[Rfam]
Nucleotides: 093
Stems, first nucleotide, its partner, number of pairs: 001093005007087002010084003014080024039055001
Number, partner (000 for none) and nucleotide at each position: 001093c002092a003091u004090g005089g006000g007087u008086u009000u010084a011083u012082g013000u014080u015079a016078u017077a018076u019075u020074c021073c022072a023071u024070c025069u026068c027067u028066u029065g030064c031063a032062c033061a034060c035059u036058g037057g038000a039055c040000a041000a042000g043000u044000g045000c046000u047000g048000g049000g050000c051000u052000u053000c054000a055039g056000g057037c058036u059035g060034g061033u062032g063031u064030g065029c066028a067027g068026g069025g070024g071023g072022u073021g074020g075019a076018a077017u078016a079015u080014a081000u082012c083011a084010u085000u086008g087007a088000a089005u090004c091003a092002u093001g

The record is a 93-nucleotide RNA sequence from Gossypium raimondii, which matches "MIR2950 microRNA precursor family" in Rfam. Rfam 15.1 lists 60 matches to the family in 34 species. Rfam links the family to the GO terms RISC complex and miRNA-mediated post-transcriptional gene silencing. The match comes from Rfam's covariance-model search (84 bits). Pairs were carried over by alignment from the consensus structure, which was predicted with RNAalifold. The organism belongs to Gossypium, within Eukaryota.